[Rfam]
RNA sequence: CGGGUUUACUCCUGGAUGUUACCGUUUCGUCAAGCCGAGGCUCGACGGCGUUUUGGUGUCUGAUUCGGUAAACGAAUCGGGAGCACCAUCUGCGUAGGCUUUAGGUUUAAGGCUUGCGCCGCCUACGGUCUUGGAUAGCCCCCGCCAGGCAGGGACCCCAAUAGUUGGGGCGAAGGCUAGCCUUCGCC
Dot-bracket structure: .((((((...((((........((...((((.(((....))).)))).))...(((((((((((((.......)))))))..))))))...(((..((((....((((((((((............))))))))))))))..)))))))...))))))...........((((((......)))))).